[Rfam]
RNA sequence: ACCUUCCUUGUCUGGGGGUGGAUUGGGGCGGUCAAUGAACGAGUAGUGAGAUCAUCCCUGCUGACACCUUACCCAACACAUUACGCAUCACCUGGGCGGCUACGCUCAGGCUACGGUGCAAUUUUUGGAACC
Numbered sequence: 001a002c003c004u005u006c007c008u009u010g011u012c013u014g015g016g017g018g019u020g021g022a023u024u025g026g027g028g029c030g031g032u033c034a035a036u037g038a039a040c041g042a043g044u045a046g047u048g049a050g051a052u053c054a055u056c057c058c059u060g061c062u063g064a065c066a067c068c069u070u071a072c073c074c075a076a077c078a079c080a081u082u083a084c085g086c087a088u089c090a091c092c093u094g095g096g097c098g099g100c101u102a103c104g105c106u107c108a109g110g111c112u113a114c115g116g117u118g119c120a121a122u123u124u125u126u127g128g129a130a131c132c
Base pairs, nucleotide, nucleotide: 006018007017008016009015020061022059027056028055030053031052032051033050039047040046085119086118087117088116089115092109093108094107095106096105097104
RNA: U4atac minor spliceosomal RNA